Flavo-1 RNA: a 96-nucleotide RNA from Pedobacter polaris. The family has 201 seed sequences and 7,497 matches in Rfam 15.1. NCBI's taxonomy places the organism under Bacteria, Pseudomonadati, Bacteroidota, Sphingobacteriia, Pedobacter. The base pairs follow the family's consensus structure, which is taken from published work.
[Rfam]
RNA sequence: UACUAAACCAGAUUGGAGUGAAAAUCCUUUUUGUUUAUUGCAGUUAGCAAUUUGUUAGCACUGACAAAAAGAUUGUAACGAAAAGCGGGGCUAUCG
Numbered sequence: 001u002a003c004u005a006a007a008c009c010a011g012a013u014u015g016g017a018g019u020g021a022a023a024a025u026c027c028u029u030u031u032u033g034u035u036u037a038u039u040g041c042a043g044u045u046a047g048c049a050a051u052u053u054g055u056u057a058g059c060a061c062u063g064a065c066a067a068a069a070a071g072a073u074u075g076u077a078a079c080g081a082a083a084a085g086c087g088g089g090g091c092u093a094u095c096g
Stems, first nucleotide, its partner, number of pairs: 009088001011086001013084002018079002023074004029069007